RNA sequence: AAGAACUGAUAUUCCGACAGGUGGAAUGACGGAGUAACGCCCUGAAACGCCUGCCUUAAUACUACGGUGUGCACUUGGUGUAUGUAAGAAUAUCAAGUGUGCAAAGCCCGUUGAAGUCGGCAGAGAGUAGCCCUACCAUUGCAAAAUGCAGAUGAGGAAAGCGAUUUGGAGGCAGAUUGUGCUACCUAUGUGCCGGAGGUCUAUAUC
Numbered sequence: 001a002a003g004a005a006c007u008g009a010u011a012u013u014c015c016g017a018c019a020g021g022u023g024g025a026a027u028g029a030c031g032g033a034g035u036a037a038c039g040c041c042c043u044g045a046a047a048c049g050c051c052u053g054c055c056u057u058a059a060u061a062c063u064a065c066g067g068u069g070u071g072c073a074c075u076u077g078g079u080g081u082a083u084g085u086a087a088g089a090a091u092a093u094c095a096a097g098u099g100u101g102c103a104a105a106g107c108c109c110g111u112u113g114a115a116g117u118c119g120g121c122a123g124a125g126a127g128u129a130g131c132c133c134u135a136c137c138a139u140u141g142c143a144a145a146a147u148g149c150a151g152a153u154g155a156g157g158a159a160a161g162c163g164a165u166u167u168g169g170a171g172g173c174a175g176a177u178u179g180u181g182c183u184a185c186c187u188a189u190g191u192g193c194c195g196g197a198g199g200u201c202u203a204u205a206u207c
Base pairs, nucleotide, nucleotide: 018053019052020051021050022049023048031043032042034040054199055198056197057196064111065110066109067108068103069102070101071100072099073098074097075096076095077094078093079092080091081090118195119194120193121192122191127185128184129183130182131181132157133156134155138153139152161180162179163178164177165176166175167174168173
This 207-nucleotide sequence from Eubacterium sp. CAG:841 belongs to the Rfam family "Group II catalytic intron D1-D4-5". For this family Rfam cites "The ins and outs of group II introns" (Bonen and Vogel, Trends Genet, 2001). Taxonomically the source falls in Eubacterium (Bacteria, Bacillati, Clostridia, Eubacteriaceae). Its family is annotated with Group II intron splicing in the Gene Ontology. Group II introns are found in rRNA, tRNA and mRNA of organelles in fungi, plants and protists, and also in mRNA in bacteria.